[Rfam]
RNA sequence: AGGGCGGGCCUUUCAGGCAUCCUCUCCUAUAAAACUUUCAUGGGCCGGCCCUUCGGGGCUGGCCCUUUUUUCGUUUCGCG
Numbered sequence: 001a002g003g004g005c006g007g008g009c010c011u012u013u014c015a016g017g018c019a020u021c022c023u024c025u026c027c028u029a030u031a032a033a034a035c036u037u038u039c040a041u042g043g044g045c046c047g048g049c050c051c052u053u054c055g056g057g058g059c060u061g062g063c064c065c066u067u068u069u070u071u072c073g074u075u076u077c078g079c080g
Stems, first nucleotide, its partner, number of pairs: 008018004042065009